[Rfam]
RNA: FMN riboswitch aptamer (RFN element)
RNA sequence: AAAAUUCUUCAGGGCAGGGUGAAAUUCCCUACCGGCGGUAAAGCCCGCGAGCUAGUUUAGCAUGAUUCGGUGAAAUUCCGAGGCCGACAGUAAAGUCUGGAUGAAAGAAGAAUAUC
Numbered sequence: 001a002a003a004a005u006u007c008u009u010c011a012g013g014g015c016a017g018g019g020u021g022a023a024a025u026u027c028c029c030u031a032c033c034g035g036c037g038g039u040a041a042a043g044c045c046c047g048c049g050a051g052c053u054a055g056u057u058u059a060g061c062a063u064g065a066u067u068c069g070g071u072g073a074a075a076u077u078c079c080g081a082g083g084c085c086g087a088c089a090g091u092a093a094a095g096u097c098u099g100g101a102u103g104a105a106a107g108a109a110g111a112a113u114a115u116c
Base pairs, nucleotide, nucleotide: 004113005112006111007110008109009108010107017029018028019027031096032095033086034085035048036047037046038045043084044083066082067081068080069079070078088099089098090097